Nucleotides: 091
Base pairs, nucleotide, nucleotide: 003089005087006086007085008084009083011082012081013080
Number, partner (000 for none) and nucleotide at each position: 001000u002000c003089a004000g005087c006086u007085g008084u009083g010000u011082g012081u013080c014000u015000a016000u017000g018000a019000u020000g021000u022000a023000u024000c025000u026000g027000u028000a029000u030000a031000u032000c033000u034000g035000a036000c037000u038000c039000a040000u041000g042000c043000a044000u045000g046000a047000g048000g049000u050000c051000a052000c053000c054000a055000a056000a057000c058000a059000g060000u061000a062000a063000u064000u065000c066000g067000u068000c069000a070000c071000u072000a073000c074000c075000a076000c077000u078000g079000a080013g081012a082011c083009c084008a085007c086006a087005g088000a089003u090000u091000u
A member of the RNA family "Small nucleolar RNA SNORD70" from Cyprinus carpio, 91 nucleotides long. From the family's description: snoRNA HBII-234 belongs to the C/D family of snoRNAs. It is the human orthologue of the mouse MBII-234 and is predicted to guide 2'O-ribose methylation of the small 18S rRNA on position A512. It is hosted, together with HBII-95, by the core C/D box snoRNA protein encoding gene NOP5/NOP58. It scores 51 bits against the family's covariance model. Taxonomically the source falls in Cyprinus carpio (Eukaryota, Opisthokonta, Metazoa, Ostariophysi). Pairs were carried over by alignment from the consensus structure.